The record is a 306-nucleotide RNA from Panicum virgatum, which matches "Plant signal recognition particle RNA" in Rfam. Taxonomically the source falls in Panicum sect. Hiantes (Eukaryota, Streptophytina, Tracheophyta, Poaceae). The family is grouped with related families in Rfam's "SRP clan". It is annotated as a non-coding RNA gene. Pairs were carried over by alignment from the consensus structure, which is taken from published work. Its family is annotated with SRP-dependent cotranslational protein targeting to membrane, signal sequence recognition and signal recognition particle, endoplasmic reticulum targeting in the Gene Ontology. The match comes from Rfam's covariance-model search (228 bits).
RNA sequence: GCCGAGCUCAGUAGCGUGGGCUUGUCACUCAAGUGGGGGCAUCAGGGUGGUGAGGAUGUUUGGUGCGUUCUCUGAGCCUGGGCCUGUGGUGUCACAUAGCUGGCCUGCCCAUUCCAAGUUGUGUAGUGGUCGGAAGGUGCCGUGGCGAAGGCCAUGGCCUCUCCGGGCCUGAAGUGGCAGGAACUGCGUGAGGCUGGCUUCACAGAGCAGCGAUCACUGCCCGCUUCCAACGGUGGGAGGAUCACAGGCCGCUGCACCAUGGGCCCGCUCGGGCCUAGAGAUCCACUGCAACAGACCACCAUCCGU
Number, nucleotide and partner (000 for none) at each position: 001g040002c039003c038004g023005a022006g021007c020008u019009c018010a017011g000012u000013a000014g000015c000016g000017u010018g009019g008020g007021c006022u005023u004024g000025u000026c000027a000028c037029u036030c035031a000032a000033g000034u000035g030036g029037g028038g003039g002040c001041a000042u000043c000044a000045g304046g303047g302048u301049g300050g299051u298052g297053a000054g296055g000056a000057u293058g292059u290060u000061u288062g287063g286064u285065g284066c000067g282068u000069u281070c280071u279072c278073u277074g276075a000076g274077c273078c272079u000080g266081g265082g264083c263084c262085u261086g260087u259088g000089g258090u000091g257092u256093c000094a000095c254096a253097u000098a000099g000100c000101u251102g250103g249104c248105c247106u246107g245108c000109c240110c239111a000112u238113u237114c236115c235116a234117a000118g231119u230120u229121g228122u000123g227124u000125a225126g224127u223128g000129g168130u167131c166132g000133g164134a000135a162136g161137g160138u000139g158140c157141c156142g155143u154144g153145g152146c151147g000148a000149a000150g000151g146152c145153c144154a143155u142156g141157g140158c139159c000160u137161c136162u135163c000164c133165g000166g131167g130168c129169c174170u000171g000172a000173a000174g169175u000176g221177g220178c219179a218180g217181g000182a000183a000184c000185u000186g000187c212188g211189u210190g000191a000192g000193g000194c205195u204196g203197g000198c000199u000200u000201c000202a000203c196204a195205g194206a000207g000208c000209a000210g189211c188212g187213a000214u000215c000216a000217c180218u179219g178220c177221c176222c000223g127224c126225u125226u000227c123228c121229a120230a119231c118232g000233g000234u116235g115236g114237g113238a112239g110240g109241a000242u000243c000244a000245c107246a106247g105248g104249c103250c102251g101252c000253u096254g095255c000256a092257c091258c089259a087260u086261g085262g084263g083264c082265c081266c080267g000268c000269u000270c000271g000272g078273g077274c076275c000276u074277a073278g072279a071280g070281a069282u067283c000284c065285a064286c063287u062288g061289c000290a059291a000292c058293a057294g000295a000296c054297c052298a051299c050300c049301a048302u047303c046304c045305g000306u000